[Rfam]
RNA: Small nucleolar RNA R11/Z151
RNA sequence: GGGUUUAUGAUGAUAACUAUAAUUAUCUUAGCGGAUUUCAGUGAGAUUUUACUAUCAAUGAUCUCAUUGUUACACACACUGAAGCCC
Dot-bracket structure: (((((.............................................................................)))))